[Rfam]
RNA sequence: UCAGGGGGAAGCUCACCGCCGAGGCCACCCGCUGGGUGCGCUGUCACCCCCGCCCCGCCUCGGGGAAGGUCUGAGGGAAGGGCCGCCUGACGGCUCUCGCAGAGCCCCGCCCGCGAGGGGCGGGUGAGCCACCAGACAGGGGGGGCGCCGCGCGUCGGCCGGCAUGGGCAGGAGAAACCGAGCAGGCUCCUGCCGCCGAGCCCCGGUGGAUGCUCGUGGCCCCGCGGUGCUUUGAGACAGACUCACGGCCAGCCGUGCUCGAGUCCAAUGGGUGAGGUGGGGCACCGCCCCACAACCCAAUUCAGACUACUCUCCCCCGGA
Numbered sequence: 001u002c003a004g005g006g007g008g009a010a011g012c013u014c015a016c017c018g019c020c021g022a023g024g025c026c027a028c029c030c031g032c033u034g035g036g037u038g039c040g041c042u043g044u045c046a047c048c049c050c051c052g053c054c055c056c057g058c059c060u061c062g063g064g065g066a067a068g069g070u071c072u073g074a075g076g077g078a079a080g081g082g083c084c085g086c087c088u089g090a091c092g093g094c095u096c097u098c099g100c101a102g103a104g105c106c107c108c109g110c111c112c113g114c115g116a117g118g119g120g121c122g123g124g125u126g127a128g129c130c131a132c133c134a135g136a137c138a139g140g141g142g143g144g145g146c147g148c149c150g151c152g153c154g155u156c157g158g159c160c161g162g163c164a165u166g167g168g169c170a171g172g173a174g175a176a177a178c179c180g181a182g183c184a185g186g187c188u189c190c191u192g193c194c195g196c197c198g199a200g201c202c203c204c205g206g207u208g209g210a211u212g213c214u215c216g217u218g219g220c221c222c223c224g225c226g227g228u229g230c231u232u233u234g235a236g237a238c239a240g241a242c243u244c245a246c247g248g249c250c251a252g253c254c255g256u257g258c259u260c261g262a263g264u265c266c267a268a269u270g271g272g273u274g275a276g277g278u279g280g281g282g283c284a285c286c287g288c289c290c291c292a293c294a295a296c297c298c299a300a301u302u303c304a305g306a307c308u309a310c311u312c313u314c315c316c317c318c319g320g321a
Stems, first nucleotide, its partner, number of pairs: 001321002004318001007315003012276006020062005034049005071305005081250004092106005107123006124246005130240001144231009277293007
The record is a 321-nucleotide sequence from Calonectris borealis, which matches "Nuclear RNase P" in Rfam. The organism belongs to Calonectris, within Eukaryota.